Shown here is a 116-nucleotide RNA from Vagococcus silagei, a member of the family "PyrR binding site".
For this family Rfam cites "Molecular recognition of pyr mRNA by the Bacillus subtilis attenuation regulatory protein PyrR" (Bonner et al., Nucleic Acids Res, 2001).
The family's consensus secondary structure is taken from published work.
RNA sequence: AAGCUUUUUAAUCAAGUACAGAGAGACUAGAAAAAGCAAGGAAAUAUUUCAAUCUAUAUAAGGAUUGAAGUGUAUACUUAUAUGCCUUGUUUCUAGCGAAACAGGGCAUUUUUUUA
Numbered sequence: 001a002a003g004c005u006u007u008u009u010a011a012u013c014a015a016g017u018a019c020a021g022a023g024a025g026a027c028u029a030g031a032a033a034a035a036g037c038a039a040g041g042a043a044a045u046a047u048u049u050c051a052a053u054c055u056a057u058a059u060a061a062g063g064a065u066u067g068a069a070g071u072g073u074a075u076a077c078u079u080a081u082a083u084g085c086c087u088u089g090u091u092u093c094u095a096g097c098g099a100a101a102c103a104g105g106g107c108a109u110u111u112u113u114u115u116a
Stems, first nucleotide, its partner, number of pairs: 003037006013030001015028003042075001044073012080111001082109012